[Rfam]
This 196-nucleotide sequence from Anopheles stephensi belongs to the Rfam family "drz-agam-2-2 ribozyme". Gene Ontology term of the family: catalytic activity. The organism belongs to Neocellia, within Eukaryota.
RNA sequence: AAUAGUUAAAGGCUCUGUUAAUGGGACAGGAUCCGAGACUCCUUUCGGGGUUACACAGGCUCUCCCACCAAACUCCUAUUCCGUCACGUCCUCGUCGUACAGAGUGGUAGCUUUCCCCACCGCAUAUCCAAGCUCUGGUACACGGGCCUGUCCCAACCCCUUGAGCUGAUGGUGGAACAAUGCUAAACAGGAGGGA
Dot-bracket structure: ...........(((((((......(...(((.((.......................))...)))...)....[[[[.[[.[...(((.[[....))))))))))]]...(.((.(.((((....(((.....(..((.............))..).(......)..))))))))...)).).......]]]]]]]